[Rfam]
RNA sequence: AGAGGAAGCAUCCAAAGGGAUCGCAUUGAUCCUUUAUUUUUCUUCCUUCACAAUUUUGGAUCAUGCUAUCCCUUCGGAUUUUUCCUU
Dot-bracket structure: .(((((.(.((((.(((((((.((((.(((((...(..................)..))))))))).))))))).)))).).)))))
The record is an 87-nucleotide RNA sequence from Gossypium lobatum, which matches "mir-393 microRNA precursor family" in Rfam. Rfam links the family to the GO terms RISC complex and miRNA-mediated post-transcriptional gene silencing. For this family Rfam cites "Role of microRNAs and other sRNAs of plants in their changing environments" (Kruszka et al., J Plant Physiol, 2012). Lineage of the source: Eukaryota > Streptophytina > Mesangiospermae > Malvoideae > Gossypium.